Annotation: The family of this 64-nucleotide RNA sequence from Bacillus licheniformis is "Bacillaceae-1 RNA". The source organism's lineage runs through Bacteria, Bacillota, Bacillaceae, Bacillus and Bacillus licheniformis.
RNA sequence: AUGCAAGGAAGGCAUGCUAAAAGCGCAACGUCCUGUUGCAACGCAUGCACUUGUACGUCCUGUA
Numbered sequence: 001a002u003g004c005a006a007g008g009a010a011g012g013c014a015u016g017c018u019a020a021a022a023g024c025g026c027a028a029c030g031u032c033c034u035g036u037u038g039c040a041a042c043g044c045a046u047g048c049a050c051u052u053g054u055a056c057g058u059c060c061u062g063u064a
Base pairs, nucleotide, nucleotide: 012048013047014046015045016044017043025039026038027037028036029035054064055063056062